[Rfam]
RNA sequence: GUGAGUCUUUGAACCAGGAAUAUAAUUUGUAUAUAUUGGUUCAAAUCGCUCGUAG
Number, nucleotide and partner (000 for none) at each position: 001g053002u052003g051004a050005g049006u048007c000008u045009u044010u043011g042012a041013a040014c039015c038016a037017g036018g000019a034020a032021u031022a030023u000024a000025a000026u000027u000028u000029g000030u022031a021032u020033a000034u019035a000036u017037u016038g015039g014040u013041u012042c011043a010044a009045a008046u000047c000048g006049c005050u004051c003052g002053u001054a000055g000
RNA: mir-1011 microRNA precursor family